The record is an 87-nucleotide RNA from Sedimentibacter hydroxybenzoicus, which matches "c-di-GMP-I riboswitch aptamer" in Rfam. Gene Ontology term of the family: cyclic-di-GMP binding. The match comes from Rfam's covariance-model search (83 bits).
[Rfam]
RNA sequence: CAAUUAAAUAGGCAAAAUUUCCUAAAGGAAAUGACGCAAAGCUAUAGGGUCUAAGCCAUGAAAAUGGUAUGACAGCCAGUUGCUGUA
Numbered sequence: 001c002a003a004u005u006a007a008a009u010a011g012g013c014a015a016a017a018u019u020u021c022c023u024a025a026a027g028g029a030a031a032u033g034a035c036g037c038a039a040a041g042c043u044a045u046a047g048g049g050u051c052u053a054a055g056c057c058a059u060g061a062a063a064a065u066g067g068u069a070u071g072a073c074a075g076c077c078a079g080u081u082g083c084u085g086u087a
Stems, first nucleotide, its partner, number of pairs: 012037002017032006040081004047077002049073003056067004